[Rfam]
RNA: Archaeal small subunit ribosomal RNA, nucleotides 498 to 856
RNA sequence: GGCUUAAAGCGUUCGUAGCUGGCUUGUUAAGUCUCUGGGGAAAUCUUCCGGCUUAACCGGAAGGCGUCUCAGGGAUACUGGCAGGCUAGGGACCGGAAGAGGUGAGAGGUACUCCAGGGGUAGGAGUGAAAUCCUGUAAUCCUUGGGGGACCACCUGUGGCGAAGGCGUCUCACCAGGACGGCUCCGACAGUGAGGAACGAAAGCUGGGGGAGCAAACCGGAUUAGAUACCCGGGUAGUCCCAGCUGUAAACGAUGCGCGUUAGGUGUAUCGGUGACCACGAGUCACCGAGGUGCCGAAGAGAAAUCGUGAAACGCGCCGCCUGGGAAGUACGGUCGCAAGGCUGAAACUUAAAGGAAU
Numbered sequence: 001g002g003c004u005u006a007a008a009g010c011g012u013u014c015g016u017a018g019c020u021g022g023c024u025u026g027u028u029a030a031g032u033c034u035c036u037g038g039g040g041a042a043a044u045c046u047u048c049c050g051g052c053u054u055a056a057c058c059g060g061a062a063g064g065c066g067u068c069u070c071a072g073g074g075a076u077a078c079u080g081g082c083a084g085g086c087u088a089g090g091g092a093c094c095g096g097a098a099g100a101g102g103u104g105a106g107a108g109g110u111a112c113u114c115c116a117g118g119g120g121u122a123g124g125a126g127u128g129a130a131a132u133c134c135u136g137u138a139a140u141c142c143u144u145g146g147g148g149g150a151c152c153a154c155c156u157g158u159g160g161c162g163a164a165g166g167c168g169u170c171u172c173a174c175c176a177g178g179a180c181g182g183c184u185c186c187g188a189c190a191g192u193g194a195g196g197a198a199c200g201a202a203a204g205c206u207g208g209g210g211g212a213g214c215a216a217a218c219c220g221g222a223u224u225a226g227a228u229a230c231c232c233g234g235g236u237a238g239u240c241c242c243a244g245c246u247g248u249a250a251a252c253g254a255u256g257c258g259c260g261u262u263a264g265g266u267g268u269a270u271c272g273g274u275g276a277c278c279a280c281g282a283g284u285c286a287c288c289g290a291g292g293u294g295c296c297g298a299a300g301a302g303a304a305a306u307c308g309u310g311a312a313a314c315g316c317g318c319c320g321c322c323u324g325g326g327a328a329g330u331a332c333g334g335u336c337g338c339a340a341g342g343c344u345g346a347a348a349c350u351u352a353a354a355g356g357a358a359u
Stems, first nucleotide, its partner, number of pairs: 001322003009319001011199004016193001018192003022086007030079002032075009045063007090186003093182003101175007108152002112148008123134003160167002204245006213239002218234004256318006264296005270290008300307002324351003333344004
Dot-bracket structure: (((.....(.((((.(.(((.(((((((.(((((((((((....(((((((.....)))))))...)))))))))..)))))))))...((((((.....(((((((((..((((((((...(((......)))......))))))))..)).......((....)).)))))))....))).)))...))))..))))....((((((...((...((((.........))))...))))))))..........((((((..(((((.((((((((.....)))))))).)))))...((....)).....)))))))))).(((......((((....))))....)))........